mraW RNA: a 111-nucleotide sequence from Propionimicrobium lymphophilum. It scores 60 bits against the family's covariance model.

RNA sequence: AGCGCAACUUGCCGGUUGGCUGCCGAUCAGGCCUGUGCACCCUGGCGCAACUUCCCCUGUGCCAGGUGGCAGACGGUCUGGUCGGUAACCUGCCGGCAAGUAGCGACUUCG
Numbered sequence: 001a002g003c004g005c006a007a008c009u010u011g012c013c014g015g016u017u018g019g020c021u022g023c024c025g026a027u028c029a030g031g032c033c034u035g036u037g038c039a040c041c042c043u044g045g046c047g048c049a050a051c052u053u054c055c056c057c058u059g060u061g062c063c064a065g066g067u068g069g070c071a072g073a074c075g076g077u078c079u080g081g082u083c084g085g086u087a088a089c090c091u092g093c094c095g096g097c098a099a100g101u102a103g104c105g106a107c108u109u110c111g
Stems, first nucleotide, its partner, number of pairs: 010098007018090002021087013036071003041066008